This 136-nucleotide RNA sequence from Cephalotus follicularis belongs to the Rfam family "MIR396 microRNA precursor family". Lineage of the source: Eukaryota > Euphyllophyta > Oxalidales > Cephalotaceae > Cephalotus. On this family, see Jones-Rhoades and Bartel, Mol Cell 2004: "Computational identification of plant microRNAs and their targets, including a stress-induced miRNA". The family has 26 seed sequences and 744 matches in Rfam 15.1.

RNA sequence: CUUUGUACUUUUCCACAGCUUUCUUGAACUGCAUCUAUUAGACUGUUGUUCUUCUUGUUGUUAUUACAUGUGGCAGUGUAGUGCCAGUAGUUGUACACUUUUUGUGGUUCAAUAAAGCUGUGGGAAGAUACAGACA
Numbered sequence: 001c002u003u004u005g006u007a008c009u010u011u012u013c014c015a016c017a018g019c020u021u022u023c024u025u026g027a028a029c030u031g032c033a034u035c036u037a038u039u040a041g042a043c044u045g046u047u048g049u050u051c052u053u054c055u056u057g058u059u060g061u062u063a064u065u066a067c068a069u070g071u072g073g074c075a076g077u078g079u080a081g082u083g084c085c086a087g088u089a090g091u092u093g094u095a096c097a098c099u100u101u102u103u104g105u106g107g108u109u110c111a112a113u114a115a116a117g118c119u120g121u122g123g124g125a126a127g128a129u130a131c132a133g134a135c136a
Stems, first nucleotide, its partner, number of pairs: 003133005013123003017119006024112004029107005